Shown here is a 124-nucleotide RNA sequence from Burkholderiales bacterium PBB5, a member of the family "Glycine riboswitch aptamer". This family represents the bacterial glycine riboswitch. Gene Ontology term of the family: glycine biosynthetic process.
Nucleotides: 124
Stems, first nucleotide, its partner, number of pairs: 006119005012114003021051007053103003056099002060097003066090001
Number, partner (000 for none) and nucleotide at each position: 001000g002000c003000g004000u005000u006119c007118c008117u009116c010115g011000u012114c013113u014112g015000g016000a017000g018000a019000g020000a021051g022050g023049c024048g025047g026046g027045c028000c029000a030000a031000u032000c033000c034000u035000u036000c037000g038000g039000g040000a041000g042000g043000g044000c045027g046026c047025c048024c049023g050022u051021c052000c053103a054102c055101c056099g057098a058000a059000g060097g061096g062095g063000c064000a065000a066090g067000c068000c069000g070000u071000u072000g073000c074000g075000g076000u077000a078000c079000c080000a081000c082000c083000g084000c085000g086000g087000c088000g089000a090066c091000c092000a093000a094000u095062c096061u097060c098057u099056c100000a101055g102054g103053u104000a105000a106000a107000g108000c109000g110000g111000a112014c113013a114012g115010c116009g117008a118007g119006g120000g121000c122000a123000u124000c